Notes: msiK RNA: a 57-nucleotide RNA from Corynebacterium sp. sy039. It scores 52 bits against the family's covariance model.
Nucleotides: 057
Base pairs, nucleotide, nucleotide: 009049010048011047012046013045014044026043027042028041029040030039031038
Number, partner (000 for none) and nucleotide at each position: 001000u002000u003000c004000a005000c006000u007000u008000a009049u010048c011047u012046u013045c014044a015000c016000u017000a018000c019000g020000g021000a022000u023000c024000g025000u026043u027042c028041g029040g030039c031038a032000c033000g034000u035000u036000c037000c038031u039030g040029c041028c042027g043026a044014u045013g046012g047011a048010g049009g050000a051000a052000a053000a054000a055000u056000g057000g